[Rfam]
RNA sequence: UGCACAGCUCUGCCUCAGAUCGCUCAAAGAUCCCUUUAUGUGCUGUAUUAAUCCAUAUAAGAAAAUCUCUUUUAAUGAGGAGUGAUAUAGUUAUGAACUCUCUAGAGCCAUAAUUAGAGCAAACUAAUUGAAGUUGUGUUUUGACACACUUUCCAAAUUCACGGGUACUGCAUGACAUAUUCACAACACUACUGCUGCACAGCCAUGGCGACAGCAAAAUCAUUAGGCUAAUAACGCUUAUUUGCAUUCUUAUCAUGCCAGCAGCAUGCCGUUAAAUACUGCUUCAACCAGUGCUCGUUUACUCUGAAAGUUUCCACUGGAAGAUAUUAACAGUAGUUAUUAGUACUUUAGUGGAAUCUUUAAUGUUAGGGA
Numbered sequence: 001u002g003c004a005c006a007g008c009u010c011u012g013c014c015u016c017a018g019a020u021c022g023c024u025c026a027a028a029g030a031u032c033c034c035u036u037u038a039u040g041u042g043c044u045g046u047a048u049u050a051a052u053c054c055a056u057a058u059a060a061g062a063a064a065a066u067c068u069c070u071u072u073u074a075a076u077g078a079g080g081a082g083u084g085a086u087a088u089a090g091u092u093a094u095g096a097a098c099u100c101u102c103u104a105g106a107g108c109c110a111u112a113a114u115u116a117g118a119g120c121a122a123a124c125u126a127a128u129u130g131a132a133g134u135u136g137u138g139u140u141u142u143g144a145c146a147c148a149c150u151u152u153c154c155a156a157a158u159u160c161a162c163g164g165g166u167a168c169u170g171c172a173u174g175a176c177a178u179a180u181u182c183a184c185a186a187c188a189c190u191a192c193u194g195c196u197g198c199a200c201a202g203c204c205a206u207g208g209c210g211a212c213a214g215c216a217a218a219a220u221c222a223u224u225a226g227g228c229u230a231a232u233a234a235c236g237c238u239u240a241u242u243u244g245c246a247u248u249c250u251u252a253u254c255a256u257g258c259c260a261g262c263a264g265c266a267u268g269c270c271g272u273u274a275a276a277u278a279c280u281g282c283u284u285c286a287a288c289c290a291g292u293g294c295u296c297g298u299u300u301a302c303u304c305u306g307a308a309a310g311u312u313u314c315c316a317c318u319g320g321a322a323g324a325u326a327u328u329a330a331c332a333g334u335a336g337u338u339a340u341u342a343g344u345a346c347u348u349u350a351g352u353g354g355a356a357u358c359u360u361u362a363a364u365g366u367u368a369g370g371g372a
Stems, first nucleotide, its partner, number of pairs: 046365005052355005059348003067082006087340008098107003117296005130152004135148005164270002168264001193210005214258003227245002230242004
RNA: ncRNA Repressor of NFAT (nuclear factor of activated T cells)